The record is an 87-nucleotide RNA sequence from Gossypium anomalum, which matches "MIR7486 microRNA precursor family" in Rfam. It scores 83 bits against the family's covariance model.
[Rfam]
RNA sequence: CUUGAGGAAACGCUUUGCCAACGUGGACAGAAAGCGCUCCCUCAAGGAAGCGUUUUAUGUCCACAUAGGCAAAGCGCGUCCUCAAGG
Numbered sequence: 001c002u003u004g005a006g007g008a009a010a011c012g013c014u015u016u017g018c019c020a021a022c023g024u025g026g027a028c029a030g031a032a033a034g035c036g037c038u039c040c041c042u043c044a045a046g047g048a049a050g051c052g053u054u055u056u057a058u059g060u061c062c063a064c065a066u067a068g069g070c071a072a073a074g075c076g077c078g079u080c081c082u083c084a085a086g087g
Stems, first nucleotide, its partner, number of pairs: 001086008011076009021066001023064007031056008040047002
Dot-bracket structure: ((((((((..(((((((((.(.(((((((.((((((((.((....)).)))))))).))))))).).)))))))))..)))))))).
Record summary
Gene Ontology terms of the family: RISC complex and miRNA-mediated post-transcriptional gene silencing.